[Rfam]
RNA sequence: AACCCCCCGUGUGGCGACAUCUUGCCCAAUCCCCCAGGGCCGAAAGGCAGCAAGGGUCAGCGAGCUCUGUCGGGUGCACGGGGGGCCUUU
Numbered sequence: 001a002a003c004c005c006c007c008c009g010u011g012u013g014g015c016g017a018c019a020u021c022u023u024g025c026c027c028a029a030u031c032c033c034c035c036a037g038g039g040c041c042g043a044a045a046g047g048c049a050g051c052a053a054g055g056g057u058c059a060g061c062g063a064g065c066u067c068u069g070u071c072g073g074g075u076g077c078a079c080g081g082g083g084g085g086c087c088u089u090u
Base pairs, nucleotide, nucleotide: 001089002088005085006082007081008080009079010078011077012074015072016071017070018069019068021064022063023062024061025060031056032055033054039048040047041046
Overview:
The record is a 90-nucleotide RNA sequence from Nocardioides dokdonensis, which matches "Bacterial small signal recognition particle RNA" in Rfam. Rfam describes the family as follows. The signal recognition particle (SRP) is a universally conserved ribonucleoprotein involved in the co-translational targeting of proteins to membranes. Taxonomically the source falls in Nocardioides dokdonensis (Bacteria, Actinomycetota, Propionibacteriales, Nocardioides). Rfam links the family to the GO terms SRP-dependent cotranslational protein targeting to membrane, signal sequence recognition and signal recognition particle, plasma membrane targeting. Rfam classes the family as a non-coding RNA gene. Pairs were carried over by alignment from the consensus structure, which is taken from published work. It scores 60 bits against the family's covariance model.